[Rfam]
RNA: COG3860 RNA
Organism: Usitatibacter rugosus
RNA sequence: AGGUCGGCAGUUCACCCAGGCGUUGCCGCGCGACACCCUCGCGAGCUAAACCUGCCC
Numbered sequence: 001a002g003g004u005c006g007g008c009a010g011u012u013c014a015c016c017c018a019g020g021c022g023u024u025g026c027c028g029c030g031c032g033a034c035a036c037c038c039u040c041g042c043g044a045g046c047u048a049a050a051c052c053u054g055c056c057c
Stems, first nucleotide, its partner, number of pairs: 002016003029043004